[Rfam]
RNA: Small nucleolar RNA SNORA15
Organism: Rhinopomastus cyanomelas
RNA sequence: GCAUGGAUGAAUUCUGCACUAGCUUUCCUCAGUAGCUAAUGCAGUCAGACACUGUGCUAGAGUGAAUUCCUUUCUCACGCUGAUGGGUGUGCUUUUUGUUUGAUGGUGGGCAUGCCUUUGGAAUGGGGAUACAUAA
Numbered sequence: 001g002c003a004u005g006g007a008u009g010a011a012u013u014c015u016g017c018a019c020u021a022g023c024u025u026u027c028c029u030c031a032g033u034a035g036c037u038a039a040u041g042c043a044g045u046c047a048g049a050c051a052c053u054g055u056g057c058u059a060g061a062g063u064g065a066a067u068u069c070c071u072u073u074c075u076c077a078c079g080c081u082g083a084u085g086g087g088u089g090u091g092c093u094u095u096u097u098g099u100u101u102g103a104u105g106g107u108g109g110g111c112a113u114g115c116c117u118u119u120g121g122a123a124u125g126g127g128g129a130u131a132c133a134u135a136a
Base pairs, nucleotide, nucleotide: 001057002056003055004054005053006052014044015043016042017041018040067129068128069127070125072123073122074121075120083119085117086116087115088114089113090112091111092110093109094108